[Rfam]
RNA: Listeria sRNA rliD
RNA sequence: CUGUUAAUGGGAAAAAGUCGCCUGGACGUGGUUUUUUAGAACCUACUGCCGCUGUUAAAACGACCGUAUCUCCGUAACGAAUUAAUGCUGCUCCACUUGCUUGUUUUGCUAAUUGACCUACUUCAACAGAUAAUGUUUUACCUGCCCAUUCUGUUGAAAACACUUGUUUUUCAGACAUAAUUUAAUCUCCUUUGUUUAGGAAACACGAACCAGAAACUUUACCAUGCAUAAGAAUGUUCACGCACACUUUAGAUUUUCUAAAGCACACAUGAAUCCAAAAACCUGCUAAAAAUAGCGAUUUUUGAAGCACGUUUUUGGAUUCAUG
Numbered sequence: 001c002u003g004u005u006a007a008u009g010g011g012a013a014a015a016a017g018u019c020g021c022c023u024g025g026a027c028g029u030g031g032u033u034u035u036u037u038a039g040a041a042c043c044u045a046c047u048g049c050c051g052c053u054g055u056u057a058a059a060a061c062g063a064c065c066g067u068a069u070c071u072c073c074g075u076a077a078c079g080a081a082u083u084a085a086u087g088c089u090g091c092u093c094c095a096c097u098u099g100c101u102u103g104u105u106u107u108g109c110u111a112a113u114u115g116a117c118c119u120a121c122u123u124c125a126a127c128a129g130a131u132a133a134u135g136u137u138u139u140a141c142c143u144g145c146c147c148a149u150u151c152u153g154u155u156g157a158a159a160a161c162a163c164u165u166g167u168u169u170u171u172c173a174g175a176c177a178u179a180a181u182u183u184a185a186u187c188u189c190c191u192u193u194g195u196u197u198a199g200g201a202a203a204c205a206c207g208a209a210c211c212a213g214a215a216a217c218u219u220u221a222c223c224a225u226g227c228a229u230a231a232g233a234a235u236g237u238u239c240a241c242g243c244a245c246a247c248u249u250u251a252g253a254u255u256u257u258c259u260a261a262a263g264c265a266c267a268c269a270u271g272a273a274u275c276c277a278a279a280a281a282c283c284u285g286c287u288a289a290a291a292a293u294a295g296c297g298a299u300u301u302u303u304g305a306a307g308c309a310c311g312u313u314u315u316u317g318g319a320u321u322c323a324u325g
Base pairs, nucleotide, nucleotide: 003264004263005262008260009259010258011257012256013255014219015218017217018216022213023212024211025210027079028078029077030043031042032041033040034039047068048067049066051064053062054061055060102205103204104203107202109199110198111197112196116192122158123157124156125155126154127153128152129151130150135145136144165177166176167175168174169173225244226243227242268325269324270323271322272321273320274319275318276317277316278315279314280313281312282311285308286307287306